[Rfam]
RNA sequence: AACGAGAGACUCUGGCCUGGCCCACGCUUGUGAAAUUCGAGUGUCGGCUCGAUCAACUGUUCGGGCUUGAACCAGAGGCAGGCGGGUGGCAGCUUGGGCUCCCACACGUGCUUUGCGCACCCCGGCCUGGCAGCUUGCCACCCGCCGCUCUCACCCA
Numbered sequence: 001a002a003c004g005a006g007a008g009a010c011u012c013u014g015g016c017c018u019g020g021c022c023c024a025c026g027c028u029u030g031u032g033a034a035a036u037u038c039g040a041g042u043g044u045c046g047g048c049u050c051g052a053u054c055a056a057c058u059g060u061u062c063g064g065g066c067u068u069g070a071a072c073c074a075g076a077g078g079c080a081g082g083c084g085g086g087u088g089g090c091a092g093c094u095u096g097g098g099c100u101c102c103c104a105c106a107c108g109u110g111c112u113u114u115g116c117g118c119a120c121c122c123c124g125g126c127c128u129g130g131c132a133g134c135u136u137g138c139c140a141c142c143c144g145c146c147g148c149u150c151u152c153a154c155c156c157a
Base pairs, nucleotide, nucleotide: 004152005151006150007149008148010077011076012075013074014073015067017065018064020062023059024058035053036052039050040049041048042047081146082145083144084143085142086141087140088139089138090137091135092134093133094132108120109119110118111117
This 157-nucleotide RNA sequence from Pseudothauera rhizosphaerae belongs to the Rfam family "Xanthomonadaceae sRNA sX15". A reference for the family is Schmidtke et al. (2011), "Genome-wide transcriptome analysis of the plant pathogen Xanthomonas identifies sRNAs with putative virulence functions", Nucleic Acids Res. The base pairs follow the family's consensus structure, which was predicted with CMfinder. Taxonomically the source falls in Pseudothauera (Bacteria, Pseudomonadota, Rhodocyclales, Zoogloeaceae). It scores 56 bits against the family's covariance model. The family has 14 seed sequences and 32 matches in Rfam 15.1. It is annotated as a small RNA.